The family of this 55-nucleotide RNA sequence is "eL15-Euryarchaeota ribosomal protein leader". The literature on the family includes a 2020 paper in BMC Microbiol by Eckert and Weinberg, "Discovery of 20 novel ribosomal leader candidates in bacteria and archaea".

Nucleotides: 055
Stems, first nucleotide, its partner, number of pairs: 001014005017050002024045008
Number, partner (000 for none) and nucleotide at each position: 001014c002013c003012u004011g005010c006000g007000u008000g009000u010005g011004c012003a013002g014001g015000u016000c017050g018049g019000g020000a021000u022000g023000u024045g025044a026043g027042g028041c029040g030039g031038c032000g033000a034000c035000c036000a037000c038031g039030c040029c041028g042027c043026c044025u045024u046000g047000a048000a049018c050017c051000a052000c053000a054000c055000a
The family's RNA type in Rfam is cis-regulatory leader.